[Rfam]
RNA sequence: GGCCGGGUGUGCGGCUAAUACAAGACCUGUGAAUAACAGGGAAUACGCCCGCCGACUUGUUGCGGUUUUGAGCUCCCGGCCGCCCUCUC
Numbered sequence: 001g002g003c004c005g006g007g008u009g010u011g012c013g014g015c016u017a018a019u020a021c022a023a024g025a026c027c028u029g030u031g032a033a034u035a036a037c038a039g040g041g042a043a044u045a046c047g048c049c050c051g052c053c054g055a056c057u058u059g060u061u062g063c064g065g066u067u068u069u070g071a072g073c074u075c076c077c078g079g080c081c082g083c084c085c086u087c088u089c
Stems, first nucleotide, its partner, number of pairs: 001081007009073001013049003016045002026040005051066004